Source information
The family of this 76-nucleotide RNA from Xanthomonas oryzae is "Xanthomonas sRNA sX9". Taxonomically the source falls in Xanthomonas oryzae pv. oryzae (Bacteria, Gammaproteobacteria, Lysobacteraceae, Xanthomonas). By type it is a small RNA.
RNA sequence: AUGUGCCACGGGUGUACGGCGGCACCCGUACGCCGUCUGCACGCAGCUGACAACGUAUCGCUAGGUUUUGUGAGCC
Numbered sequence: 001a002u003g004u005g006c007c008a009c010g011g012g013u014g015u016a017c018g019g020c021g022g023c024a025c026c027c028g029u030a031c032g033c034c035g036u037c038u039g040c041a042c043g044c045a046g047c048u049g050a051c052a053a054c055g056u057a058u059c060g061c062u063a064g065g066u067u068u069u070g071u072g073a074g075c076c
Stems, first nucleotide, its partner, number of pairs: 002016005020035004047074002050071004